[Rfam]
RNA sequence: CUCCUGUUACGUAUACUGAAGGUAUACCGGAAUAUAUAUGCUCAGGAUACAUUCAGUAUACGUCCAGGGG
Numbered sequence: 001c002u003c004c005u006g007u008u009a010c011g012u013a014u015a016c017u018g019a020a021g022g023u024a025u026a027c028c029g030g031a032a033u034a035u036a037u038a039u040g041c042u043c044a045g046g047a048u049a050c051a052u053u054c055a056g057u058a059u060a061c062g063u064c065c066a067g068g069g070g
Stems, first nucleotide, its partner, number of pairs: 002069005009063012022050004027046002030043002034039001

Rfam assigns this 70-nucleotide RNA from Strigamia maritima to the family "mir-iab-4 microRNA precursor family". On this family, see Berezikov et al., Nat Genet 2010: "Evolutionary flux of canonical microRNAs and mirtrons in Drosophila". The source organism's lineage runs through Eukaryota, Panarthropoda, Chilopoda, Geophilomorpha and Strigamia. Rfam 15.1 lists 160 matches to the family in 157 species.